[Rfam]
RNA: Small nucleolar RNA SNORD100
Organism: Oryzias sinensis
RNA sequence: UAUUUCUGUGAUGAUAUCCUGGCUCCCUCUGCUGAACAUCAUGUGGAAGUCUGCCAUUGUUACCCAAUGUCUGUCUGAGAUAUG
Number, nucleotide and partner (000 for none) at each position: 001u084002a083003u082004u000005u080006c079007u000008g000009u000010g000011a000012u000013g000014a000015u000016a000017u000018c000019c000020u000021g000022g000023c000024u000025c000026c000027c000028u000029c000030u000031g000032c000033u000034g000035a000036a000037c000038a000039u000040c000041a000042u000043g000044u000045g000046g000047a000048a000049g000050u000051c000052u000053g000054c000055c000056a000057u000058u000059g000060u000061u000062a000063c000064c000065c000066a000067a000068u000069g000070u000071c000072u000073g000074u000075c000076u000077g000078a000079g006080a005081u000082a003083u002084g001